[Rfam]
RNA: Small nucleolar RNA SNORD17
Organism: Scleropages formosus
RNA sequence: GUGAGUGAUGAACGUGUUUAUCCAUUCGCUGAGCGCUGCCGGCCCCUUUCCUGCAGCACUGGUGUCUGUUCUAGACCCCCGGUGUUCAGCUUCCUGCUCCCCUGCUGUUGCUCCAGUGUUCUGCUGGUGCAGCUGCUGCGGGACGUAGCAAGCAGGUGCAGGGUCUGAGGGCUCGACAAUGGCCAAGACGAGUGUAAACUUCUGAUCAC
Numbered sequence: 001g002u003g004a005g006u007g008a009u010g011a012a013c014g015u016g017u018u019u020a021u022c023c024a025u026u027c028g029c030u031g032a033g034c035g036c037u038g039c040c041g042g043c044c045c046c047u048u049u050c051c052u053g054c055a056g057c058a059c060u061g062g063u064g065u066c067u068g069u070u071c072u073a074g075a076c077c078c079c080c081g082g083u084g085u086u087c088a089g090c091u092u093c094c095u096g097c098u099c100c101c102c103u104g105c106u107g108u109u110g111c112u113c114c115a116g117u118g119u120u121c122u123g124c125u126g127g128u129g130c131a132g133c134u135g136c137u138g139c140g141g142g143a144c145g146u147a148g149c150a151a152g153c154a155g156g157u158g159c160a161g162g163g164u165c166u167g168a169g170g171g172c173u174c175g176a177c178a179a180u181g182g183c184c185a186a187g188a189c190g191a192g193u194g195u196a197a198a199c200u201u202c203u204g205a206u207c208a209c
Stems, first nucleotide, its partner, number of pairs: 009208003013204001016201001019198001023194006029187002033183002038177001040175002042172004047167001050163003053159002055086007062078001064076004089153004094148002099141002101138001104136002108132004113127006